[Rfam]
RNA sequence: UCGGGGAGCCCGGCGGCUCUCUGGUGUUCAAGCAGGAACCUCAUGCUACCGGCAGCAUGCGGCGCUUGCUUGAACAUCCCAGAGCCACCGGCGUGCCAAA
Numbered sequence: 001u002c003g004g005g006g007a008g009c010c011c012g013g014c015g016g017c018u019c020u021c022u023g024g025u026g027u028u029c030a031a032g033c034a035g036g037a038a039c040c041u042c043a044u045g046c047u048a049c050c051g052g053c054a055g056c057a058u059g060c061g062g063c064g065c066u067u068g069c070u071u072g073a074a075c076a077u078c079c080c081a082g083a084g085c086c087a088c089c090g091g092c093g094u095g096c097c098a099a100a
Base pairs, nucleotide, nucleotide: 003097004096006094008092009091010090012089013088015086016085017084018083019082020081023078024077025076026075027074028073029072030071031070032069033068034067035066036065039062040061042059043058044057045056046055047054
MIR9662 microRNA precursor family: a 100-nucleotide RNA from Triticum aestivum. The family's consensus secondary structure was predicted with RNAalifold. NCBI's taxonomy places the organism under Eukaryota, Viridiplantae, Poales, Triticodae, Triticum. The sequence is in the family's curated seed alignment.